[Rfam]
RNA sequence: UCGAAGCUCUAUCUACAAAUGGAUAAGAUCCCAUUUUAGUCUAUAGGAGGUUUUGAAAAGAAAGGAGCAAUAAUCAUUUUCUUGUUUUAUCAAGAGGGUGUGAUUGCUCCUUU
Numbered sequence: 001u002c003g004a005a006g007c008u009c010u011a012u013c014u015a016c017a018a019a020u021g022g023a024u025a026a027g028a029u030c031c032c033a034u035u036u037u038a039g040u041c042u043a044u045a046g047g048a049g050g051u052u053u054u055g056a057a058a059a060g061a062a063a064g065g066a067g068c069a070a071u072a073a074u075c076a077u078u079u080u081c082u083u084g085u086u087u088u089a090u091c092a093a094g095a096g097g098g099u100g101u102g103a104u105u106g107c108u109c110c111u112u113u
Stems, first nucleotide, its partner, number of pairs: 008023005061113011073101001075100003079096005